Notes:
Shown here is a 67-nucleotide RNA, a member of the family "pemK RNA". By type it is a cis-regulatory element.

[Rfam]
RNA sequence: ACAAUGAUACUUCAGUAGCCGAAAGGCGCUGCCUGCGGAGUACCCGGGGGAGGUGAAAUUCCUAUGG
Numbered sequence: 001a002c003a004a005u006g007a008u009a010c011u012u013c014a015g016u017a018g019c020c021g022a023a024a025g026g027c028g029c030u031g032c033c034u035g036c037g038g039a040g041u042a043c044c045c046g047g048g049g050g051a052g053g054u055g056a057a058a059u060u061c062c063u064a065u066g067g
Base pairs, nucleotide, nucleotide: 012064013031014030015029016028032050033049034048036046037045038044051063052062053061